[Rfam]
RNA sequence: AAACCCUGCCCGUAACCUAGUUGAUGUUCAUCGCAGUGAUAUGACGCAUCAGUACAUUCCUUAUCACCGGGUGUACAUCAGCUAGGGUGCGGGUUCAGGUU
Numbered sequence: 001a002a003a004c005c006c007u008g009c010c011c012g013u014a015a016c017c018u019a020g021u022u023g024a025u026g027u028u029c030a031u032c033g034c035a036g037u038g039a040u041a042u043g044a045c046g047c048a049u050c051a052g053u054a055c056a057u058u059c060c061u062u063a064u065c066a067c068c069g070g071g072u073g074u075a076c077a078u079c080a081g082c083u084a085g086g087g088u089g090c091g092g093g094u095u096c097a098g099g100u101u
Stems, first nucleotide, its partner, number of pairs: 011091004016086002019083009029073004034069001036067006
The record is a 101-nucleotide sequence from Caenorhabditis remanei, which matches "mir-36 microRNA precursor family" in Rfam. Rfam 15.1 lists 199 matches to the family in 31 species. Clan: mir-36 clan. The family's consensus secondary structure was predicted with WAR.